[Rfam]
RNA sequence: GUAUUACCGUAGUAUUACUGAAGUAUUACCGUAGUAUUACUGUAGUAUUACCGUAGUAUUACCGUAUUACUGUAGUAUUAC
Numbered sequence: 001g002u003a004u005u006a007c008c009g010u011a012g013u014a015u016u017a018c019u020g021a022a023g024u025a026u027u028a029c030c031g032u033a034g035u036a037u038u039a040c041u042g043u044a045g046u047a048u049u050a051c052c053g054u055a056g057u058a059u060u061a062c063c064g065u066a067u068u069a070c071u072g073u074a075g076u077a078u079u080a081c
Stems, first nucleotide, its partner, number of pairs: 001081003005077003010074001011071004016066003022060008
Dot-bracket structure: (((.(((..(((((.(((...((((((((.......................))))))))...))).))))..)))).)))
The record is an 81-nucleotide RNA sequence from Dicentrarchus labrax, which matches "mir-16 microRNA precursor family" in Rfam. Its Rfam clan is "mir-15 clan". Its family is annotated with miRNA-mediated post-transcriptional gene silencing and RISC complex in the Gene Ontology.